[Rfam]
RNA sequence: GUCUCCCUUUGGCCGUACGAGCCGGGGAACCAGGUUCCAGGGGUGAAUCGGAGCGCAUCUGCUCCGUAGGGCGACUUCCACGCCCGAAUCCGUCAGCUAACCCGGUAGGCGGUCCUUGGGAGAGGGG
Numbered sequence: 001g002u003c004u005c006c007c008u009u010u011g012g013c014c015g016u017a018c019g020a021g022c023c024g025g026g027g028a029a030c031c032a033g034g035u036u037c038c039a040g041g042g043g044u045g046a047a048u049c050g051g052a053g054c055g056c057a058u059c060u061g062c063u064c065c066g067u068a069g070g071g072c073g074a075c076u077u078c079c080a081c082g083c084c085c086g087a088a089u090c091c092g093u094c095a096g097c098u099a100a101c102c103c104g105g106u107a108g109g110c111g112g113u114c115c116u117u118g119g120g121a122g123a124g125g126g127g
Base pairs, nucleotide, nucleotide: 002020003019021106022105023104024103025102026101031040041091042090043089049066050065051064052063069085070084071083072082
RNA: c-di-AMP riboswitch aptamer (ydaO/yuaA leader)